[Rfam]
RNA sequence: UCACCUUUCACACACGCCUCACCGAGACUAAACAGCGUGUCUAAAAAAUAGUCUCUCAUACCUGACCUGGAGGGUAGGUCAGGAAUAUUUUACUCA
Numbered sequence: 001u002c003a004c005c006u007u008u009c010a011c012a013c014a015c016g017c018c019u020c021a022c023c024g025a026g027a028c029u030a031a032a033c034a035g036c037g038u039g040u041c042u043a044a045a046a047a048a049u050a051g052u053c054u055c056u057c058a059u060a061c062c063u064g065a066c067c068u069g070g071a072g073g074g075u076a077g078g079u080c081a082g083g084a085a086u087a088u089u090u091u092a093c094u095c096a
Stems, first nucleotide, its partner, number of pairs: 013039005024055005061083007
A member of the RNA family "PhotoRC-II RNA" from Nilusvirus ssm2, 96 nucleotides long. The organism belongs to Nilusvirus ssm2, within Viruses. By type it is a cis-regulatory element.